About this RNA:
JUMPstart RNA: a 38-nucleotide RNA sequence from Serratia proteamaculans. It is annotated as a cis-regulatory element. Rfam's curators put it in the seed alignment. Pairs were carried over by alignment from the consensus structure, which is taken from published work.
[Rfam]
RNA sequence: UAGCGCAUUGGGAGCUGUAACUCAAGGGCGGUAGCGUG
Numbered sequence: 001u002a003g004c005g006c007a008u009u010g011g012g013a014g015c016u017g018u019a020a021c022u023c024a025a026g027g028g029c030g031g032u033a034g035c036g037u038g
Stems, first nucleotide, its partner, number of pairs: 008025005